[Rfam]
RNA: Small nucleolar RNA U109
RNA sequence: CUGCAUGUAGAAUUUUUUGUGCUUCUGACUCUAAUAGGAGCAUAAAUAUAUUCAAAGCAUGCUAUAGAAAACAUUGGAGUGUUCAGGGCUGCCAGUCUUUUAGAAAAGGCUGAGUGGUAGUAUAAUUCUCCUACAUUG
Numbered sequence: 001c002u003g004c005a006u007g008u009a010g011a012a013u014u015u016u017u018u019g020u021g022c023u024u025c026u027g028a029c030u031c032u033a034a035u036a037g038g039a040g041c042a043u044a045a046a047u048a049u050a051u052u053c054a055a056a057g058c059a060u061g062c063u064a065u066a067g068a069a070a071a072c073a074u075u076g077g078a079g080u081g082u083u084c085a086g087g088g089c090u091g092c093c094a095g096u097c098u099u100u101u102a103g104a105a106a107a108g109g110c111u112g113a114g115u116g117g118u119a120g121u122a123u124a125a126u127u128c129u130c131c132u133a134c135a136u137u138g
Stems, first nucleotide, its partner, number of pairs: 003062006018044008076131004088118002092114001093112007